[Rfam]
RNA sequence: UUUGUAUAAAAUUUUGAUUGUUGCUCAGAAAGCCGUGUCCUUUGAGCAAUUCGCUUUCGAGCAGUAAUCAAAGUCAAAUAAAAC
Number, nucleotide and partner (000 for none) at each position: 001u000002u083003u082004g000005u080006a079007u078008a000009a000010a000011a000012u073013u072014u071015u070016g069017a068018u067019u000020g065021u064022u063023g062024c061025u060026c059027a000028g058029a057030a056031a055032g054033c053034c000035g000036u000037g000038u000039c000040c000041u000042u000043u000044g000045a000046g000047c000048a000049a000050u000051u000052c000053g033054c032055u031056u030057u029058c028059g026060a025061g024062c023063a022064g021065u020066a000067a018068u017069c016070a015071a014072a013073g012074u000075c000076a000077a000078a007079u006080a005081a000082a003083a002084c000

A member of the RNA family "mir-315 microRNA precursor family" from Anopheles stephensi, 84 nucleotides long. Its family is annotated with miRNA-mediated post-transcriptional gene silencing and RISC complex in the Gene Ontology. The base pairs follow the family's consensus structure, which was predicted with RNAalifold. Lineage of the source: Eukaryota > Arthropoda > Insecta > Cellia > Neocellia.